[Rfam]
RNA sequence: UCCCGAUAACGGCAAACCUGUCGAAAGGCAGCGACGCAAAGCUACAGGGCCUUCCUGAUCCGUCAGAUGGCAGCCAGCUACCGAA
Numbered sequence: 001u002c003c004c005g006a007u008a009a010c011g012g013c014a015a016a017c018c019u020g021u022c023g024a025a026a027g028g029c030a031g032c033g034a035c036g037c038a039a040a041g042c043u044a045c046a047g048g049g050c051c052u053u054c055c056u057g058a059u060c061c062g063u064c065a066g067a068u069g070g071c072a073g074c075c076a077g078c079u080a081c082c083g084a085a
Stems, first nucleotide, its partner, number of pairs: 012037002018031005040079004047075002049071003056065003
Dot-bracket structure: ...........((....(((((....)))))....))..((((...(((((....(((....)))...)))..))))))......
This 85-nucleotide RNA from Paenibacillus flagellatus belongs to the Rfam family "c-di-GMP-I riboswitch aptamer". The family has 155 seed sequences and 5,092 matches in Rfam 15.1. NCBI's taxonomy places the organism under Bacteria, Bacillota, Bacilli, Caryophanales, Paenibacillus. Pairs were carried over by alignment from the consensus structure, which is taken from published work.